Small Cajal body specific RNA 8: a 135-nucleotide sequence from Ooceraea biroi.

RNA sequence: GGGAAGAUAGAUACACGAGUGUCGACAAGAUCAGACGACUCGUCACUCGGUUCUUCCAAAAGAAAAAAAAGAAUGCCUUCUGAUGACUGUAACUUGUGAAGUACUAAUUUACAGACAGAUACGGGGCAUACAAGU
Numbered sequence: 001g002g003g004a005a006g007a008u009a010g011a012u013a014c015a016c017g018a019g020u021g022u023c024g025a026c027a028a029g030a031u032c033a034g035a036c037g038a039c040u041c042g043u044c045a046c047u048c049g050g051u052u053c054u055u056c057c058a059a060a061a062g063a064a065a066a067a068a069a070a071g072a073a074u075g076c077c078u079u080c081u082g083a084u085g086a087c088u089g090u091a092a093c094u095u096g097u098g099a100a101g102u103a104c105u106a107a108u109u110u111a112c113a114g115a116c117a118g119a120u121a122c123g124g125g126g127c128a129u130a131c132a133a134g135u
Stems, first nucleotide, its partner, number of pairs: 002057006015043004021036003073129007087114003092109001094107002
Description
Lineage of the source: Eukaryota > Opisthokonta > Panarthropoda > Neoptera > Ooceraea. Rfam links the family to the GO terms Cajal body, nucleolus and RNA processing.